[Rfam]
RNA sequence: GCUUUCAACAUCCCCGUCCAUCGCGAUCUUCGCAUCGUCGAAUGGGCUGAAGGC
Numbered sequence: 001g002c003u004u005u006c007a008a009c010a011u012c013c014c015c016g017u018c019c020a021u022c023g024c025g026a027u028c029u030u031c032g033c034a035u036c037g038u039c040g041a042a043u044g045g046g047c048u049g050a051a052g053g054c
Base pairs, nucleotide, nucleotide: 001054002053003052004051005050006049007048013040016047017046018045019044020043021042023039025036026035027034
RNA: nadA riboswitch